[Rfam]
The family of this 70-nucleotide sequence from Macrococcus lamae is "Ribosomal protein L13 leader".
RNA sequence: GGUAUUGUUUAAUAUCAACCACUACAAUAAGCCCCGGAAACUUAUUGUGUUACAGAUAUAUAGACAGGAA
Numbered sequence: 001g002g003u004a005u006u007g008u009u010u011a012a013u014a015u016c017a018a019c020c021a022c023u024a025c026a027a028u029a030a031g032c033c034c035c036g037g038a039a040a041c042u043u044a045u046u047g048u049g050u051u052a053c054a055g056a057u058a059u060a061u062a063g064a065c066a067g068g069a070a
Stems, first nucleotide, its partner, number of pairs: 006066006023049009
Overview: By type it is a cis-regulatory leader. This family is a putative r-protein leader autoregulatory structure found in B. subtilis and other low-GC Gram-positive bacteria. It is located in the 5' untranslated regions of mRNAs encoding the L13-S9 (rplM-rpsI) ribosomal protein operon. The base pairs follow the family's consensus structure, which was predicted with CMfinder. On this family, see Zengel and Lindahl, Prog Nucleic Acid Res Mol Biol 1994: "Diverse mechanisms for regulating ribosomal protein synthesis in Escherichia coli".